RNA sequence: CCGGUGUCCCCUCCGAGUCGUCAUCAGGGGCAGGAGCGGGGGACCCACCUCCACCGGCCGGCGCCGAUCCGCGGUGUCGACCUAGGGGUGAAGCUCGACGCGUGAAGGUCACGCGAGAGCCGGGCAGCCCAGCCCGAACCCGACAGCUCACUUCGCAGGCGCACGGGAAGGAAUA
Numbered sequence: 001c002c003g004g005u006g007u008c009c010c011c012u013c014c015g016a017g018u019c020g021u022c023a024u025c026a027g028g029g030g031c032a033g034g035a036g037c038g039g040g041g042g043a044c045c046c047a048c049c050u051c052c053a054c055c056g057g058c059c060g061g062c063g064c065c066g067a068u069c070c071g072c073g074g075u076g077u078c079g080a081c082c083u084a085g086g087g088g089u090g091a092a093g094c095u096c097g098a099c100g101c102g103u104g105a106a107g108g109u110c111a112c113g114c115g116a117g118a119g120c121c122g123g124g125c126a127g128c129c130c131a132g133c134c135c136g137a138a139c140c141c142g143a144c145a146g147c148u149c150a151c152u153u154c155g156c157a158g159g160c161g162c163a164c165g166g167g168a169a170g171g172a173a174u175a
Stems, first nucleotide, its partner, number of pairs: 001159002036156006046085001086141003094119003122135004
Dot-bracket structure: ((.................................((((((....(......................................)(((.....(((....................)))..((((......))))...))).........)))))).))................
A member of the RNA family "c-di-AMP riboswitch aptamer (ydaO/yuaA leader)" from Frankia casuarinae, 175 nucleotides long. A search with the family's covariance model found it, with a score of 46 bits. Rfam 15.1 lists 7,607 matches to the family in 2,262 species.